[Rfam]
RNA sequence: ACACAGGGAAGGAGGUGGUCCGUCAAAUUGAGUGACUUAUGGACAUGUGAGGUGGCUGCGAGCUAGCAGCGCCGGGGAGUCACCUGCAGCGCGCUGGCGAAUUCCCCGCAGCCACCCGGCCCCCGAGCCCCUCGGUUUUCGUCCGACCAGGAACAGCGGCUCGGGGGCCGCUCCAU
Numbered sequence: 001a002c003a004c005a006g007g008g009a010a011g012g013a014g015g016u017g018g019u020c021c022g023u024c025a026a027a028u029u030g031a032g033u034g035a036c037u038u039a040u041g042g043a044c045a046u047g048u049g050a051g052g053u054g055g056c057u058g059c060g061a062g063c064u065a066g067c068a069g070c071g072c073c074g075g076g077g078a079g080u081c082a083c084c085u086g087c088a089g090c091g092c093g094c095u096g097g098c099g100a101a102u103u104c105c106c107c108g109c110a111g112c113c114a115c116c117c118g119g120c121c122c123c124c125g126a127g128c129c130c131c132u133c134g135g136u137u138u139u140c141g142u143c144c145g146a147c148c149a150g151g152a153a154c155a156g157c158g159g160c161u162c163g164g165g166g167g168c169c170g171c172u173c174c175a176u
Base pairs, nucleotide, nucleotide: 015059016058017057018056019055062098063097064096065095066094067093069092070091071090072089074085075084076083117170118169119168120167121166122165123164124163125162126161127160128159129158131151132150134148135147136146
RNA: Actinobacteria sRNA Ms_IGR-5